[Rfam]
RNA sequence: UCCUCAUUCCUCCUGCUAUCUCACCGAUCAGAGUGACGAGAGAGCACGGGAAAUGAAGAGA
Numbered sequence: 001u002c003c004u005c006a007u008u009c010c011u012c013c014u015g016c017u018a019u020c021u022c023a024c025c026g027a028u029c030a031g032a033g034u035g036a037c038g039a040g041a042g043a044g045c046a047c048g049g050g051a052a053a054u055g056a057a058g059a060g061a
Stems, first nucleotide, its partner, number of pairs: 001059002004056004010050001012048001014046004019041004
Description:
The family of this 61-nucleotide sequence from Pristionchus pacificus is "mir-8364 microRNA precursor family". The family's consensus secondary structure was predicted with RNAalifold. The match comes from Rfam's covariance-model search (68 bits). Rfam 15.1 lists 3,320 matches to the family in 2 species.